[Rfam]
RNA sequence: AAAAAAAAAAAGAAUUCUGCUCCUCAUUCCCAUAAGGAGCACGAAUAUAUAUAUAACAUGCUACAGAAAACAAGGAGUCUUCAGGGCUGCCAGUCUUGCAGUAAAGACUGAGUGGUAGUAUAGGUCUCCUACAUCU
Numbered sequence: 001a002a003a004a005a006a007a008a009a010a011a012g013a014a015u016u017c018u019g020c021u022c023c024u025c026a027u028u029c030c031c032a033u034a035a036g037g038a039g040c041a042c043g044a045a046u047a048u049a050u051a052u053a054u055a056a057c058a059u060g061c062u063a064c065a066g067a068a069a070a071c072a073a074g075g076a077g078u079c080u081u082c083a084g085g086g087c088u089g090c091c092a093g094u095c096u097u098g099c100a101g102u103a104a105a106g107a108c109u110g111a112g113u114g115g116u117a118g119u120a121u122a123g124g125u126c127u128c129c130u131a132c133a134u135c136u
Base pairs, nucleotide, nucleotide: 016043018041019040020039021038022037023036074129075128076127077126086116087115090112091110092109093108094107095106096105097104
This 136-nucleotide sequence from Charadrius vociferus belongs to the Rfam family "Small nucleolar RNA U109". Rfam classes the family as an H/ACA-box small nucleolar RNA. Rfam 15.1 lists 1,405 matches to the family in 622 species. The base pairs follow the family's consensus structure, which was predicted with WAR. Gene Ontology terms of the family: RNA processing and nucleolus. NCBI's taxonomy places the organism under Eukaryota, Metazoa, Archelosauria, Theropoda, Charadrius.